[Rfam]
The family of this 102-nucleotide RNA sequence from Clostridium polyendosporum is "Purine riboswitch aptamer". Lineage of the source: Bacteria > Clostridia > Eubacteriales > Clostridiaceae > Clostridium. The base pairs follow the family's consensus structure, which is taken from published work. A search with the family's covariance model found it, with a score of 80 bits. From the family's description: Riboswitches are metabolite binding domains within certain messenger RNAs that serve as precision sensors for their corresponding targets.
RNA sequence: AAAAUUAUAUAUUGUUCAGUUCGUAUAAGUUUGAAGAUGGGGUUCAAGCGUUUCUACCAGGGAGCCAUAAACUACCUGACUACGAAUAUAUGAUUUAUUCCA
Numbered sequence: 001a002a003a004a005u006u007a008u009a010u011a012u013u014g015u016u017c018a019g020u021u022c023g024u025a026u027a028a029g030u031u032u033g034a035a036g037a038u039g040g041g042g043u044u045c046a047a048g049c050g051u052u053u054c055u056a057c058c059a060g061g062g063a064g065c066c067a068u069a070a071a072c073u074a075c076c077u078g079a080c081u082a083c084g085a086a087u088a089u090a091u092g093a094u095u096u097a098u099u100c101c102a
Stems, first nucleotide, its partner, number of pairs: 019087007029049007058078004063073002